[Rfam]
RNA sequence: AAAACGGCCCUUUUCAGGGCCACAACAUUUUCUUUAACGAAUUGG
Numbered sequence: 001a002a003a004a005c006g007g008c009c010c011u012u013u014u015c016a017g018g019g020c021c022a023c024a025a026c027a028u029u030u031u032c033u034u035u036a037a038c039g040a041a042u043u044g045g
Stems, first nucleotide, its partner, number of pairs: 006021006
Histone 3' UTR stem-loop: a 45-nucleotide sequence from Vespula pensylvanica. Rfam links the family to the GO term mRNA 3'-end processing by stem-loop binding and cleavage. The mRNAs of metazoan histone genes lack a poly-A tail. 3' end processing occurs at a site between a highly conserved stem-loop (modelled by this family) and a purine rich region around 20 nts downstream (the histone downstream element, or HDE). The stem-loop is bound by a 31 kDa stem-loop binding protein (SLBP - also termed the histone hairpin binding protein, or HBP). Together with U7 snRNA binding of the HDE, SLBP binding nucleate s the formation of the processing complex. The histone 3' UTR stem-loop is also involved in nucleocytoplasmic transport of the mRNA, and in stability regulation and translation efficiency in the cytoplasm.